[Rfam]
The record is a 140-nucleotide sequence from Synechococcus elongatus, which matches "Ribosomal protein L10 leader" in Rfam. The base pairs follow the family's consensus structure, which was predicted with CMfinder. About the family: This family is a putative r-protein leader autoregulatory structure found in B. subtilis and other low-GC Gram-positive bacteria. It is located in the 5' untranslated regions of mRNAs encoding ribosomal proteins L10 and L12 (rplJ-rplL). A Rho-independent transcription terminator structure that is probably involved in regulation is included at the 3' end.
RNA sequence: UGUAACUAAAUAGCAUUACCAGAGACAGCAGGUGUUGCACCGCAACUGAAGCAUCCUGCCGAGGUAGUCCCCACAGUCUUCGUACUGUUGAUCUAUUUCGCUCUGGCAACCGAAUUUGCCGGAGCUUUUUUGUUGCAAGA
Number, nucleotide and partner (000 for none) at each position: 001u000002g000003u000004a000005a000006c000007u000008a000009a000010a000011u000012a000013g000014c000015a000016u000017u000018a000019c000020c000021a000022g000023a000024g000025a000026c000027a000028g059029c058030a057031g056032g055033u000034g046035u045036u044037g000038c000039a000040c000041c000042g000043c000044a036045a035046c034047u000048g000049a000050a000051g000052c000053a000054u000055c032056c031057u030058g029059c028060c000061g000062a000063g000064g000065u000066a000067g000068u000069c000070c000071c000072c000073a000074c000075a000076g000077u000078c000079u000080u000081c000082g000083u000084a000085c000086u000087g000088u000089u000090g000091a000092u000093c000094u000095a000096u000097u000098u000099c000100g125101c124102u123103c122104u121105g120106g119107c118108a117109a116110c000111c000112g000113a000114a000115u000116u109117u108118g107119c106120c105121g104122g103123a102124g101125c100126u000127u000128u000129u000130u000131u000132g000133u000134u000135g000136c000137a000138a000139g000140a000